The record is a 176-nucleotide RNA from Cohnella cholangitidis, which matches "Group II catalytic intron D1-D4-3" in Rfam. It scores 34 bits against the family's covariance model.

RNA sequence: CUUGUUGUAAAACGGUAGACCCAAAGCGGCCUUCGUCCAUUGGACGUGGGCCGCAUUUUGCAGGAACUGAAUUUGAGGCAGGGAUAGUCGGAUGAGUCACCCGCACAUGACGAAACCCUAAGUCGCCAAAGGCUGUUCCUGUAAACUUCACUGGUUGCGGGCAGAACGAUGACGUU
Numbered sequence: 001c002u003u004g005u006u007g008u009a010a011a012a013c014g015g016u017a018g019a020c021c022c023a024a025a026g027c028g029g030c031c032u033u034c035g036u037c038c039a040u041u042g043g044a045c046g047u048g049g050g051c052c053g054c055a056u057u058u059u060g061c062a063g064g065a066a067c068u069g070a071a072u073u074u075g076a077g078g079c080a081g082g083g084a085u086a087g088u089c090g091g092a093u094g095a096g097u098c099a100c101c102c103g104c105a106c107a108u109g110a111c112g113a114a115a116c117c118c119u120a121a122g123u124c125g126c127c128a129a130a131g132g133c134u135g136u137u138c139c140u141g142u143a144a145a146c147u148u149c150a151c152u153g154g155u156u157g158c159g160g161g162c163a164g165a166a167c168g169a170u171g172a173c174g175u176u
Stems, first nucleotide, its partner, number of pairs: 002015005029176001031174001033172001036169002041163002045159001048158001049156005068150004072145001078142003082138007090118002093115001096111004